[Rfam]
RNA sequence: CUGCUUCUAGCUUCUACAGUGUUAGGACGGAACAG
Numbered sequence: 001c002u003g004c005u006u007c008u009a010g011c012u013u014c015u016a017c018a019g020u021g022u023u024a025g026g027a028c029g030g031a032a033c034a035g
Stems, first nucleotide, its partner, number of pairs: 001035003005032004010028001012027005017021001
Iron response element I: a 35-nucleotide RNA sequence from Pipistrellus kuhlii. The literature on the family includes a 2008 paper in J Biol Chem by Sammarco et al., "Ferritin L and H subunits are differentially regulated on a post-transcriptional level". Rfam links the family to the GO term response to iron ion. The family has 62 seed sequences and 6,829 matches in Rfam 15.1. Rfam classes the family as a cis-regulatory element.